Alphaproteobacterial ar15: a 108-nucleotide RNA from Martelella alba. The match comes from Rfam's covariance-model search (91 bits). Clan: suhB sRNA clan. Lineage of the source: Bacteria > Pseudomonadati > Alphaproteobacteria > Aurantimonadaceae > Martelella. Its family is annotated with protein binding in the Gene Ontology. Rfam classes the family as a small RNA.
[Rfam]
RNA sequence: AGCUGAUGCGUCUGGCGGUUGGCUCUCCAGUCCCGCUGCAGCAGCUGUUCCCCUCUGGAGGUUUUACCUUCACAACUCAUAAGGACCCCGAUUUGGUGGUCCUUUUUU
Dot-bracket structure: (((((.(((.....((((..............)))).))).))))).........(((((((...))))))).........(((((((((...))).)))))).....
Numbered sequence: 001a002g003c004u005g006a007u008g009c010g011u012c013u014g015g016c017g018g019u020u021g022g023c024u025c026u027c028c029a030g031u032c033c034c035g036c037u038g039c040a041g042c043a044g045c046u047g048u049u050c051c052c053c054u055c056u057g058g059a060g061g062u063u064u065u066a067c068c069u070u071c072a073c074a075a076c077u078c079a080u081a082a083g084g085a086c087c088c089c090g091a092u093u094u095g096g097u098g099g100u101c102c103u104u105u106u107u108u
Stems, first nucleotide, its partner, number of pairs: 001046005007040003015036004056072007082103006088096003